The record is a 58-nucleotide sequence from Salmo salar, which matches "mir-190 microRNA precursor family" in Rfam. The family's consensus secondary structure was predicted with RNAalifold. The organism belongs to Salmo, within Eukaryota. The family is grouped with related families in Rfam's "mir-50 clan".
RNA sequence: UGAUAUGUUUGAUAUAUUAGGUUGUUAUUCAGUCCAACUAUAUAUCAAACAUAUUCCU
Numbered sequence: 001u002g003a004u005a006u007g008u009u010u011g012a013u014a015u016a017u018u019a020g021g022u023u024g025u026u027a028u029u030c031a032g033u034c035c036a037a038c039u040a041u042a043u044a045u046c047a048a049a050c051a052u053a054u055u056c057c058u
Stems, first nucleotide, its partner, number of pairs: 002055015020039005